[Rfam]
RNA: ZMP/ZTP riboswitch aptamer (pfl RNA motif)
Organism: Derxia gummosa
RNA sequence: UCAAUCCUGCGUGACUGGCGAAUACGUGGGCUCACCACGGGGGAGCGCAGGGCGCGGCGGUCGAGAACCCGCAGCGCGGUGACGGCAUCAGGCCGGCAGCGCGCGACGGUUCCGUCACCUGCCGCAUCAAGCCGUUCGCCUGGGCAUCGAUG
Numbered sequence: 001u002c003a004a005u006c007c008u009g010c011g012u013g014a015c016u017g018g019c020g021a022a023u024a025c026g027u028g029g030g031c032u033c034a035c036c037a038c039g040g041g042g043g044a045g046c047g048c049a050g051g052g053c054g055c056g057g058c059g060g061u062c063g064a065g066a067a068c069c070c071g072c073a074g075c076g077c078g079g080u081g082a083c084g085g086c087a088u089c090a091g092g093c094c095g096g097c098a099g100c101g102c103g104c105g106a107c108g109g110u111u112c113c114g115u116c117a118c119c120u121g122c123c124g125c126a127u128c129a130a131g132c133c134g135u136u137c138g139c140c141u142g143g144g145c146a147u148c149g150a151u152g
Base pairs, nucleotide, nucleotide: 005052006051007050008049009048010047011046012045015042016041017140018139019138020137021136026038027037028036029035129147131145132144133143